[Rfam]
RNA sequence: UCCGAAAACGGCAAACCGAUCGCGAGAUUGGGACGCAAAGCCACGGGUCUCUUGAAGACCGCCGGGUUACCGAAA
Numbered sequence: 001u002c003c004g005a006a007a008a009c010g011g012c013a014a015a016c017c018g019a020u021c022g023c024g025a026g027a028u029u030g031g032g033a034c035g036c037a038a039a040g041c042c043a044c045g046g047g048u049c050u051c052u053u054g055a056a057g058a059c060c061g062c063c064g065g066g067u068u069a070c071c072g073a074a075a
Base pairs, nucleotide, nucleotide: 001075003072004071011036012035016031017030018029019028020027021026034061039068040067041066042065044064045063046062047059048058049057
RNA: c-di-GMP-I-GGC riboswitch aptamer
Organism: Roseimaritima ulvae